[Rfam]
RNA sequence: GGUUGCAAGUCUGAAGCCAUAACAGAAGUAUUCACUGUGCAGCCCUGUCAGAUUCCAAUGAAUCUGCAAGUUCUGCU
Numbered sequence: 001g002g003u004u005g006c007a008a009g010u011c012u013g014a015a016g017c018c019a020u021a022a023c024a025g026a027a028g029u030a031u032u033c034a035c036u037g038u039g040c041a042g043c044c045c046u047g048u049c050a051g052a053u054u055c056c057a058a059u060g061a062a063u064c065u066g067c068a069a070g071u072u073c074u075g076c077u
Base pairs, nucleotide, nucleotide: 013045016043017042021077023075024074025073026072027071028040029039030038049066050065051064052063053062054061055060
RNA: Mammalian CPEB3 ribozyme
Organism: Crocodylus porosus